[Rfam]
RNA sequence: GCUGGUUUAGCUCCAAUGGUAGAGCAACUGACUUGUAAUCAUCAGGUCGCCAGUUCGAUUCCGGUAGCCGGCA
Numbered sequence: 001g002c003u004g005g006u007u008u009a010g011c012u013c014c015a016a017u018g019g020u021a022g023a024g025c026a027a028c029u030g031a032c033u034u035g036u037a038a039u040c041a042u043c044a045g046g047u048c049g050c051c052a053g054u055u056c057g058a059u060u061c062c063g064g065u066a067g068c069c070g071g072c073a
Stems, first nucleotide, its partner, number of pairs: 001072007010025004029041003049065003053061001
Dot-bracket structure: (((((((..((((........))))...(((.......))).......(((.(.......).)))))))))).
RNA: tRNA